[Rfam]
RNA sequence: GUGUUUUUCAUGGUAUUAGAUUUUAAGGUUAAUUGGAGAGCGAGACGUCGUGAGACGUUUCGCUCUCGUUUUUUUGUA
Numbered sequence: 001g002u003g004u005u006u007u008u009c010a011u012g013g014u015a016u017u018a019g020a021u022u023u024u025a026a027g028g029u030u031a032a033u034u035g036g037a038g039a040g041c042g043a044g045a046c047g048u049c050g051u052g053a054g055a056c057g058u059u060u061c062g063c064u065c066u067c068g069u070u071u072u073u074u075u076g077u078a
Stems, first nucleotide, its partner, number of pairs: 043060006